Overview: The family of this 58-nucleotide RNA from Microvirga mediterraneensis is "terC RNA". The organism belongs to Microvirga, within Bacteria.
RNA sequence: CUAGGGGUCCGGGCCCCUCUGGCGGGCGGGUUGCCGCUCGCGAUGUCGGACACCUCAU
Numbered sequence: 001c002u003a004g005g006g007g008u009c010c011g012g013g014c015c016c017c018u019c020u021g022g023c024g025g026g027c028g029g030g031u032u033g034c035c036g037c038u039c040g041c042g043a044u045g046u047c048g049g050a051c052a053c054c055u056c057a058u
Base pairs, nucleotide, nucleotide: 007051008050009049010048011047012046022041023040024039025038026037027036028035029034